[Rfam]
RNA: c-di-GMP-I-GGC riboswitch aptamer
Organism: Steroidobacteraceae bacterium
RNA sequence: ACUGUUAAGGGCAAACCCGACGAAAGACGGGGACGCAAAGCCACCGGUCUAAGGGCACUCUAGAUUGUCUGGGGUUGGCCACGAUAGCGGGGUUACCGAGU
Numbered sequence: 001a002c003u004g005u006u007a008a009g010g011g012c013a014a015a016c017c018c019g020a021c022g023a024a025a026g027a028c029g030g031g032g033a034c035g036c037a038a039a040g041c042c043a044c045c046g047g048u049c050u051a052a053g054g055g056c057a058c059u060c061u062a063g064a065u066u067g068u069c070u071g072g073g074g075u076u077g078g079c080c081a082c083g084a085u086a087g088c089g090g091g092g093u094u095a096c097c098g099a100g101u
Stems, first nucleotide, its partner, number of pairs: 001101001003098002011036002016031004021026001034087001039094004044090003047085003